[Rfam]
RNA sequence: CUGUGACCUGGUUCAAGUAAUCCAGGAUAGGCUGUGUGCUUCCAGAUUGGCCUGUUCUCCAUUACUUGCACUGGGGGUCAG
Numbered sequence: 001c002u003g004u005g006a007c008c009u010g011g012u013u014c015a016a017g018u019a020a021u022c023c024a025g026g027a028u029a030g031g032c033u034g035u036g037u038g039c040u041u042c043c044a045g046a047u048u049g050g051c052c053u054g055u056u057c058u059c060c061a062u063u064a065c066u067u068g069c070a071c072u073g074g075g076g077g078u079c080a081g
Stems, first nucleotide, its partner, number of pairs: 002080002007075006014068008024058010

Rfam assigns this 81-nucleotide RNA from Acipenser ruthenus to the family "mir-26 microRNA precursor family". A reference for the family is Lagos-Quintana et al. (2001), "Identification of novel genes coding for small expressed RNAs", Science. A search with the family's covariance model found it, with a score of 79 bits.